The family of this 112-nucleotide RNA from Terribacillus sp. AE2B 122 is "TPP riboswitch aptamer (THI element)". The match comes from Rfam's covariance-model search (68 bits). Lineage of the source: Bacteria > Bacillati > Bacilli > Caryophanales > Terribacillus. From the family's description: Vitamin B(1) in its active form thiamin pyrophosphate (TPP) is an essential coenzyme that is synthesised by coupling of pyrimidine and thiazole moieties in bacteria.
RNA sequence: GAUUCACACUAGGGGAUCCCUUUAUAAGGGCUGAGAUUAAGAGUAGUGACUCUUUAAACCCUCAUAACCUGAACAGGUUCGGACCUGCGUAGGAAAGUGUAGACACUCGAGU
Numbered sequence: 001g002a003u004u005c006a007c008a009c010u011a012g013g014g015g016a017u018c019c020c021u022u023u024a025u026a027a028g029g030g031c032u033g034a035g036a037u038u039a040a041g042a043g044u045a046g047u048g049a050c051u052c053u054u055u056a057a058a059c060c061c062u063c064a065u066a067a068c069c070u071g072a073a074c075a076g077g078u079u080c081g082g083a084c085c086u087g088c089g090u091a092g093g094a095a096a097g098u099g100u101a102g103a104c105a106c107u108c109g110a111g112u
Base pairs, nucleotide, nucleotide: 006100007099008098009097010096011062012061013060014059018030019029020028021027039054040053041052042051043050044049068093069092070091071090074087075086076085077084